RNA sequence: CACCCAGUCCGAGGUUCCGGCACCGACCGGAACCUGGUGCACAAGGGA
Numbered sequence: 001c002a003c004c005c006a007g008u009c010c011g012a013g014g015u016u017c018c019g020g021c022a023c024c025g026a027c028c029g030g031a032a033c034c035u036g037g038u039g040c041a042c043a044a045g046g047g048a
Stems, first nucleotide, its partner, number of pairs: 013034008
A member of the RNA family "raiA-hairpin RNA" from Streptomyces sulfonofaciens, 48 nucleotides long. It scores 63 bits against the family's covariance model. Pairs were carried over by alignment from the consensus structure, which is taken from published work.